RNA sequence: AAUCCUGGGUUAAAAAAGCCCCUUAAACCAGUAAUGUUUUAAUGUAAAUAGGGUGAAUUGCAAGAACAAGUUUAUUUAAUAAACUCAAUUUGCAGCGAAGCUUGAUUCGGUAUACAUUGUUUAUUAACAAAUGAAUCAAGAACGUUCAACGACUAACAGGUGAGUACUACCAACAAUAAUCCUGACACGAGCACCCUACAACCAGUGGGAUUUUUCUGGUUGAAAACAUAGUCUAAGCCCAAUGGUGACAUUGGG
Numbered sequence: 001a002a003u004c005c006u007g008g009g010u011u012a013a014a015a016a017a018g019c020c021c022c023u024u025a026a027a028c029c030a031g032u033a034a035u036g037u038u039u040u041a042a043u044g045u046a047a048a049u050a051g052g053g054u055g056a057a058u059u060g061c062a063a064g065a066a067c068a069a070g071u072u073u074a075u076u077u078a079a080u081a082a083a084c085u086c087a088a089u090u091u092g093c094a095g096c097g098a099a100g101c102u103u104g105a106u107u108c109g110g111u112a113u114a115c116a117u118u119g120u121u122u123a124u125u126a127a128c129a130a131a132u133g134a135a136u137c138a139a140g141a142a143c144g145u146u147c148a149a150c151g152a153c154u155a156a157c158a159g160g161u162g163a164g165u166a167c168u169a170c171c172a173a174c175a176a177u178a179a180u181c182c183u184g185a186c187a188c189g190a191g192c193a194c195c196c197u198a199c200a201a202c203c204a205g206u207g208g209g210a211u212u213u214u215u216c217u218g219g220u221u222g223a224a225a226a227c228a229u230a231g232u233c234u235a236a237g238c239c240c241a242a243u244g245g246u247g248a249c250a251u252u253g254g255g
Stems, first nucleotide, its partner, number of pairs: 007021005026038003049198004054193002059094006069085005095145002102138001108133002111130001149234001151233005201220005207214002240253005